RNA sequence: CCAUUCAACCAGCCGAAUCCCGAACCACUCGGGAACCGGGGACCCACUUCGUUGGGGUGAAUCCGGCAGCACGCCGGUAGGGCAUCUCCUCGCCCGAACCCGUCAGCUAACCCGGUAGGCGUGAUGGAGAGGACCC
Numbered sequence: 001c002c003a004u005u006c007a008a009c010c011a012g013c014c015g016a017a018u019c020c021c022g023a024a025c026c027a028c029u030c031g032g033g034a035a036c037c038g039g040g041g042a043c044c045c046a047c048u049u050c051g052u053u054g055g056g057g058u059g060a061a062u063c064c065g066g067c068a069g070c071a072c073g074c075c076g077g078u079a080g081g082g083c084a085u086c087u088c089c090u091c092g093c094c095c096g097a098a099c100c101c102g103u104c105a106g107c108u109a110a111c112c113c114g115g116u117a118g119g120c121g122u123g124a125u126g127g128a129g130a131g132g133a134c135c136c
Base pairs, nucleotide, nucleotide: 012120013119014118018034019033020032021031022030035116036115037114038113039112040111045054046053055101056100057099063077064076065075066074080095081094082093083092
Shown here is a 136-nucleotide RNA from Nonomuraea wenchangensis, a member of the family "c-di-AMP riboswitch aptamer (ydaO/yuaA leader)". The organism belongs to Nonomuraea, within Bacteria. Rfam links the family to the GO terms cyclic-di-AMP binding and regulation of gene expression.